Nucleotides: 197
Stems, first nucleotide, its partner, number of pairs: 011182004018042005043177006053098001099162003107137003140156004
Number, partner (000 for none) and nucleotide at each position: 001000g002000g003000g004000c005000a006000a007000c008000c009000a010000u011182c012181g013180c014179c015000g016000a017000g018042u019041c020040c021039c022038c023000g024000u025000a026000c027000g028000g029000c030000g031000c032000a033000a034000g035000c036000c037000a038022g039021g040020g041019g042018a043177g044176c045175c046174g047173g048172g049000g050000a051000a052000c053098c054000a055000a056000c057000c058000u059000c060000g061000c062000c063000c064000g065000u066000c067000g068000c069000c070000g071000c072000c073000c074000g075000c076000g077000g078000c079000g080000c081000c082000g083000g084000a085000c086000g087000g088000g089000u090000g091000a092000u093000c094000c095000c096000c097000a098053g099162g100161g101160g102000u103000g104000a105000a106000u107137c108136g109135g110000a111000c112000g113000c114000c115000u116000u117000c118000c119000c120000g121000c122000c123000a124000g125000g126000g127000g128000g129000a130000g131000g132000g133000g134000c135109c136108c137107g138000u139000a140156g141155g142154a143153g144000a145000c146000c147000u148000u149000c150000c151000u152000g153143c154142u155141c156140c157000g158000a159000a160101c161100c162099c163000g164000u165000c166000a167000g168000c169000u170000a171000a172048c173047c174046c175045g176044g177043u178000a179014g180013g181012c182011g183000a184000g185000a186000g187000g188000a189000a190000g191000g192000a193000a194000a195000g196000g197000a